Overview: Glycine riboswitch aptamer: a 99-nucleotide RNA sequence from Planobispora rosea. A search with the family's covariance model found it, with a score of 68 bits. Taxonomically the source falls in Planobispora (Bacteria, Bacillati, Actinomycetota, Actinomycetes).
RNA sequence: GAACCCCGCGCGGGAGAGCGUCCUGACACCCAGCCCAGGACCCCUGAAGGAGCAAGCCCUCCCCGCGAACCUCUCAAGGCAAAGGACCGUGCGGGUAGG
Numbered sequence: 001g002a003a004c005c006c007c008g009c010g011c012g013g014g015a016g017a018g019c020g021u022c023c024u025g026a027c028a029c030c031c032a033g034c035c036c037a038g039g040a041c042c043c044c045u046g047a048a049g050g051a052g053c054a055a056g057c058c059c060u061c062c063c064c065g066c067g068a069a070c071c072u073c074u075c076a077a078g079g080c081a082a083a084g085g086a087c088c089g090u091g092c093g094g095g096u097a098g099g
Stems, first nucleotide, its partner, number of pairs: 006094008020041006043079003046075002050073003056066002